Annotation
The family of this 122-nucleotide RNA from Otolemur garnettii is "Small nucleolar RNA SNORD22". Rfam links the family to the GO terms nucleolus and RNA processing. It is annotated as a C/D-box small nucleolar RNA. It scores 76 bits against the family's covariance model.

Nucleotides: 122
Base pairs, nucleotide, nucleotide: 001121002120003119004118
Number, partner (000 for none) and nucleotide at each position: 001121u002120g003119c004118c005000a006000a007000u008000g009000u010000g011000a012000g013000c014000a015000a016000g017000c018000a019000u020000c021000c022000u023000g024000u025000c026000c027000u028000a029000c030000c031000c032000u033000a034000u035000g036000u037000u038000g039000u040000a041000g042000c043000c044000c045000c046000a047000g048000a049000g050000u051000c052000a053000g054000u055000a056000a057000u058000a059000a060000a061000g062000a063000a064000u065000g066000c067000a068000c069000u070000g071000g072000g073000g074000u075000a076000a077000c078000u079000g080000g081000g082000a083000g084000g085000g086000g087000a088000u089000g090000a091000g092000a093000a094000c095000u096000u097000a098000c099000u100000c101000c102000g103000u104000a105000a106000g107000g108000a109000a110000c111000u112000g113000u114000c115000u116000g117000a118004g119003g120002u121001a122000u
The family has 49 seed sequences and 1,081 matches in Rfam 15.1.